The family of this 105-nucleotide sequence from Saccharomonospora viridis is "SAM riboswitch aptamer (S box leader)". Pairs were carried over by alignment from the consensus structure, which is taken from published work. Gene Ontology term of the family: regulation of gene expression. The source organism's lineage runs through Bacteria, Bacillati, Actinomycetota, Saccharomonospora and Saccharomonospora viridis. The SAM riboswitch is found upstream of a number of genes which code for proteins involved in methionine or cysteine biosynthesis in Gram-positive bacteria. The SAM riboswitch acts at the level of transcription termination control. The predicted structure consists of a complex stem-loop region followed by a single stem loop terminator region. An alternative and mutually exclusive form involves bases in the 3' segment of helix 1 with those in the 5' region of helix 5 to form a structure termed the anti-terminator form.
RNA sequence: UAUCCAUCCCGAGCGACCGAGAGACCUGGCUCUAUGACGUCGCAGCAACCGCCCACUGUUCGGAUACCGAGUGGGGACAGGUGCUAACGCCAGGAUCGAUGGAGG
Numbered sequence: 001u002a003u004c005c006a007u008c009c010c011g012a013g014c015g016a017c018c019g020a021g022a023g024a025c026c027u028g029g030c031u032c033u034a035u036g037a038c039g040u041c042g043c044a045g046c047a048a049c050c051g052c053c054c055a056c057u058g059u060u061c062g063g064a065u066a067c068c069g070a071g072u073g074g075g076g077a078c079a080g081g082u083g084c085u086a087a088c089g090c091c092a093g094g095a096u097c098g099a100u101g102g103a104g105g
Stems, first nucleotide, its partner, number of pairs: 001105001003103006013043005021032003026093004044085004049081002052076003089097001
Dot-bracket structure: (.((((((....(((((...(((..[[[[)))......)))))((((.((.(((...................)))...))))))...(]]]]...))))))).)